[Rfam]
RNA sequence: GUAAAAAUAAGAAUGGAAUAAUCGAAUAGACUCGUUAAAACGAGAACUGCCGUGUGGCAGGAA
Numbered sequence: 001g002u003a004a005a006a007a008u009a010a011g012a013a014u015g016g017a018a019u020a021a022u023c024g025a026a027u028a029g030a031c032u033c034g035u036u037a038a039a040a041c042g043a044g045a046a047c048u049g050c051c052g053u054g055u056g057g058c059a060g061g062a063a
Base pairs, nucleotide, nucleotide: 031044032043033042034041035040047060048059049058050057051056
Notes
The record is a 63-nucleotide sequence, which matches "RAGATH-30 RNA" in Rfam. It is annotated as a small RNA. Pairs were carried over by alignment from the consensus structure, which is taken from published work.